Background: Mammalian CPEB3 ribozyme: a 76-nucleotide RNA from Alligator mississippiensis. Rfam's curators write: The mammalian CPEB3 ribozyme is a self cleaving RNA located in the second intron of the CPEB3 gene which belongs to a family of genes regulating messenger RNA polyadenylation. NCBI's taxonomy places the organism under Eukaryota, Eumetazoa, Craniata, Amniota, Alligator.
RNA sequence: AGAUUUGUCCAAGGGCCAUAGCAGAAGUGCUUAUGGCAUGGCCCUGCCAGAUUCGAACAAAUCUGUAAAUUAUGCU
Numbered sequence: 001a002g003a004u005u006u007g008u009c010c011a012a013g014g015g016c017c018a019u020a021g022c023a024g025a026a027g028u029g030c031u032u033a034u035g036g037c038a039u040g041g042c043c044c045u046g047c048c049a050g051a052u053u054c055g056a057a058c059a060a061a062u063c064u065g066u067a068a069a070u071u072a073u074g075c076u
Stems, first nucleotide, its partner, number of pairs: 013044005020076004025071002027039003048065006
Dot-bracket structure: ............(((((..[[[[.[[(((.......))))))))...((((((......))))))....]].]]]]